[Rfam]
RNA sequence: CAGGUGAGAGUAUUGCAUCAGGUACUGAUGUGAUGUAGAAACAACCAGUACUUGUGUUAAUACUUACGCUUG
Numbered sequence: 001c002a003g004g005u006g007a008g009a010g011u012a013u014u015g016c017a018u019c020a021g022g023u024a025c026u027g028a029u030g031u032g033a034u035g036u037a038g039a040a041a042c043a044a045c046c047a048g049u050a051c052u053u054g055u056g057u058u059a060a061u062a063c064u065u066a067c068g069c070u071u072g
Base pairs, nucleotide, nucleotide: 001072002071003070004069005068006067009064010063011062012061015057016056017055018054021052022051023050024049025048026047027046029044